RNA sequence: UAACAGCGAUGAGACGAGAGGUUGCUGGACUUCCGGGGAAUUCUUGUUGAGUAUGUUAGGGUCUAAGAACCCAGCGA
Numbered sequence: 001u002a003a004c005a006g007c008g009a010u011g012a013g014a015c016g017a018g019a020g021g022u023u024g025c026u027g028g029a030c031u032u033c034c035g036g037g038g039a040a041u042u043c044u045u046g047u048u049g050a051g052u053a054u055g056u057u058a059g060g061g062u063c064u065a066a067g068a069a070c071c072c073a074g075c076g077a
Base pairs, nucleotide, nucleotide: 014047015046016045018043019042020041025036026035027034028033054076055075056074057073059072060071061070062069